The record is a 164-nucleotide RNA sequence from Dryobates pubescens, which matches "U1 spliceosomal RNA" in Rfam. The family is grouped with related families in Rfam's "U1 clan". By type it is a spliceosomal small nuclear RNA. A reference for the family is Zwieb (1997), "The uRNA database", Nucleic Acids Res. Pairs were carried over by alignment from the consensus structure, which is taken from published work. The source organism's lineage runs through Eukaryota, Deuterostomia, Teleostomi, Neoaves and Dryobates. Rfam describes the family as follows. U1 is a small nuclear RNA (snRNA) component of the spliceosome (involved in pre-mRNA splicing). Its 5' end forms complementary base pairs with the 5' splice junction, thus defining the 5' donor site of an intron.

Nucleotides: 164
Stems, first nucleotide, its partner, number of pairs: 012122004016048001018046004024041004049090004054086001056083003060079005092117001094115001095113001096111002099109002138163006146155002
Number, partner (000 for none) and nucleotide at each position: 001000u002000c003000a004000c005000u006000u007000a008000c009000c010000u011000g012122g013121c014120a015119g016048g017000a018046g019045a020044g021043a022000c023000a024041c025040c026039a027038c028000g029000a030000u031000c032000a033000g034000g035000c036000a037000g038027g039026u040025g041024g042000g043021u044020u045019u046018c047000c048016c049090a050089g051088g052087g053000c054086g055000a056083g057082g058081c059000u060079c061078a062077u063076c064075c065000u066000u067000u068000g069000c070000a071000c072000u073000c074000c075064g076063g077062g078061u079060g080000u081058g082057c083056u084000g085000a086054c087052c088051c089050c090049u091000g092117c093000a094115a095113u096111u097110c098000c099109c100108c101000c102000a103000a104000a105000u106000g107000c108100g109099g110097g111096a112000a113095a114000c115094u116000c117092g118000a119015c120014u121013g122012c123000g124000u125000a126000a127000u128000u129000u130000g131000u132000g133000g134000u135000a136000g137000u138163g139162g140161g141160g142159g143158a144000c145000u146155g147154c148000c149000u150000u151000c152000g153000u154147g155146c156000u157000c158143u159142c160141c161140c162139c163138u164000u